Rfam assigns this 73-nucleotide sequence from Crocodylus porosus to the family "Mammalian CPEB3 ribozyme". The source organism's lineage runs through Eukaryota, Eumetazoa, Dipnotetrapodomorpha, Crocodylidae and Crocodylus. Its family is annotated with RNA nuclease activity in the Gene Ontology. The match comes from Rfam's covariance-model search (51 bits).

RNA sequence: AGCACAUCUUUGGGGGCCAUAACAGAAGUGUCCACAUUGUGACCUCUGUCAGGUAAUACCUGCAAAUUCUGCU
Numbered sequence: 001a002g003c004a005c006a007u008c009u010u011u012g013g014g015g016g017c018c019a020u021a022a023c024a025g026a027a028g029u030g031u032c033c034a035c036a037u038u039g040u041g042a043c044c045u046c047u048g049u050c051a052g053g054u055a056a057u058a059c060c061u062g063c064a065a066a067u068u069c070u071g072c073u
Stems, first nucleotide, its partner, number of pairs: 013046004018041001021073001023071005028040003050062005